This 78-nucleotide RNA from Escherichia coli belongs to the Rfam family "Nucleoid-associated noncoding RNA 4 (CssrE)".
Its family is annotated with protein binding, bacterial nucleoid DNA packaging and bacterial nucleoid in the Gene Ontology.

RNA sequence: GGCCUGAUAAGAUGCGCCAGCAUCGCAUCAGGCAUGGUGUGCCGAUUGCCGGAUGCGGCGUGAACGCCUUAUCCGGCC
Numbered sequence: 001g002g003c004c005u006g007a008u009a010a011g012a013u014g015c016g017c018c019a020g021c022a023u024c025g026c027a028u029c030a031g032g033c034a035u036g037g038u039g040u041g042c043c044g045a046u047u048g049c050c051g052g053a054u055g056c057g058g059c060g061u062g063a064a065c066g067c068c069u070u071a072u073c074c075g076g077c078c
Stems, first nucleotide, its partner, number of pairs: 002033007011024004048077008057068004
Rfam 15.1 lists 870 matches to the family in 32 species. About the family: In E. coli small RNA transcribed from repeated extragenic palindromic element (REP325) called nucleoid-associated ncRNA 4 (nRNA4) collaborates HU protein in condensing the DNA. The secondary structure but not the sequence of the RNA is important in nucleoid condensation. The literature on the family includes a 2015 paper in MBio by Qian et al., "A New Noncoding RNA Arranges Bacterial Chromosome Organization".